The record is a 135-nucleotide RNA from Brevundimonas halotolerans, which matches "Molybdenum/Tungsten riboswitch aptamer (Moco RNA motif)" in Rfam. The match comes from Rfam's covariance-model search (77 bits). The family's consensus secondary structure is taken from published work. NCBI's taxonomy places the organism under Bacteria, Pseudomonadota, Alphaproteobacteria, Caulobacteraceae, Brevundimonas.
[Rfam]
RNA sequence: UUCACGAGUUCGCUCCGAGCGGCCCGACCUAAAGCUCUACAGCGCCAAGGUUCGGCAGCCGGAUCCGCAAGGAUCGAGGGCGGCGGGAGAAAUCCCUCCGCCUCCCGUGUUUGGAAAGGGGCUUCCAUGGCGUUC
Numbered sequence: 001u002u003c004a005c006g007a008g009u010u011c012g013c014u015c016c017g018a019g020c021g022g023c024c025c026g027a028c029c030u031a032a033a034g035c036u037c038u039a040c041a042g043c044g045c046c047a048a049g050g051u052u053c054g055g056c057a058g059c060c061g062g063a064u065c066c067g068c069a070a071g072g073a074u075c076g077a078g079g080g081c082g083g084c085g086g087g088a089g090a091a092a093u094c095c096c097u098c099c100g101c102c103u104c105c106c107g108u109g110u111u112u113g114g115a116a117a118g119g120g121g122c123u124u125c126c127a128u129g130g131c132g133u134u135c
Stems, first nucleotide, its partner, number of pairs: 003129002006126001012122005019059002022056003026052004034045002061075002064072002078103006085096004104114002